This 268-nucleotide RNA from Pichia kudriavzevii belongs to the Rfam family "Small nucleolar RNA snR191". A search with the family's covariance model found it, with a score of 104 bits. By type it is an H/ACA-box small nucleolar RNA. The organism belongs to Pichia, within Eukaryota. For this family Rfam cites "A snoRNA that guides the two most conserved pseudouridine modifications within rRNA confers a growth advantage in yeast" (Badis et al., RNA, 2003).
RNA sequence: ACCCAACGAUUUUGUCAGGAUAUUCUAUUAGUAGUCCAUCACCAGUGAUAGAUUGCGUUUAUUUCUCAGUAUAGAUUGUCUGUUACAUCGUUGGAAGAUUGAAGAGCAUCGCCCGGCCAUGAUUCCCGUUUUGGGAUGCUUUGGUCAUCGAGACUUCGUUUUGAAGUGUCACUCCAGAUGUUUGGUGAAUUCUAUGAGUUGAACAUAGACUUUUGUGGCUUGUUCACAGUAAUCAAUGUCUUUGUUCGUAGUAAGAAAUCACACAUUC
Numbered sequence: 001a002c003c004c005a006a007c008g009a010u011u012u013u014g015u016c017a018g019g020a021u022a023u024u025c026u027a028u029u030a031g032u033a034g035u036c037c038a039u040c041a042c043c044a045g046u047g048a049u050a051g052a053u054u055g056c057g058u059u060u061a062u063u064u065c066u067c068a069g070u071a072u073a074g075a076u077u078g079u080c081u082g083u084u085a086c087a088u089c090g091u092u093g094g095a096a097g098a099u100u101g102a103a104g105a106g107c108a109u110c111g112c113c114c115g116g117c118c119a120u121g122a123u124u125c126c127c128g129u130u131u132u133g134g135g136a137u138g139c140u141u142u143g144g145u146c147a148u149c150g151a152g153a154c155u156u157c158g159u160u161u162u163g164a165a166g167u168g169u170c171a172c173u174c175c176a177g178a179u180g181u182u183u184g185g186u187g188a189a190u191u192c193u194a195u196g197a198g199u200u201g202a203a204c205a206u207a208g209a210c211u212u213u214u215g216u217g218g219c220u221u222g223u224u225c226a227c228a229g230u231a232a233u234c235a236a237u238g239u240c241u242u243u244g245u246u247c248g249u250a251g252u253a254a255g256a257a258a259u260c261a262c263a264c265a266u267u268c
Stems, first nucleotide, its partner, number of pairs: 003094005018081005024075004105182006115146005121139001124136004153167006185262004190257004200248005207241004213229006
Dot-bracket structure: ..(((((..........(((((.((((............................................)))).)))))........)))))..........((((((....(((((.(..((((.....))))..)..)))))......((((((...)))))).........))))))..((((.((((......(((((..((((..((((((.....))))))........))))..))))).....)))).))))......